[Rfam]
RNA sequence: UCCCCACUUAUGUGUGUAGGAUCCUAAAGGAUUACCAUUAAAUUUGAUACGGAUUUUUAAAAAAGUUAUCACAUAGGUGUAGGACUUGACUUUUUUAGAGAUCCGUAUCAAAUUUAAUGGUGAUCCUUUAGGGUCCUACACAGAUAGAUGGGAG
Numbered sequence: 001u002c003c004c005c006a007c008u009u010a011u012g013u014g015u016g017u018a019g020g021a022u023c024c025u026a027a028a029g030g031a032u033u034a035c036c037a038u039u040a041a042a043u044u045u046g047a048u049a050c051g052g053a054u055u056u057u058u059a060a061a062a063a064a065g066u067u068a069u070c071a072c073a074u075a076g077g078u079g080u081a082g083g084a085c086u087u088g089a090c091u092u093u094u095u096u097a098g099a100g101a102u103c104c105g106u107a108u109c110a111a112a113u114u115u116a117a118u119g120g121u122g123a124u125c126c127u128u129u130a131g132g133g134u135c136c137u138a139c140a141c142a143g144a145u146a147g148a149u150g151g152g153a154g
Stems, first nucleotide, its partner, number of pairs: 003152004008147004013142001015140014030125003034121035069082001071080003
Rfam assigns this 154-nucleotide sequence from Amborella trichopoda to the family "MIR8565 microRNA precursor family". Rfam links the family to the GO terms RISC complex and miRNA-mediated post-transcriptional gene silencing. Pairs were carried over by alignment from the consensus structure, which was predicted with RNAalifold. The organism belongs to Amborella, within Eukaryota.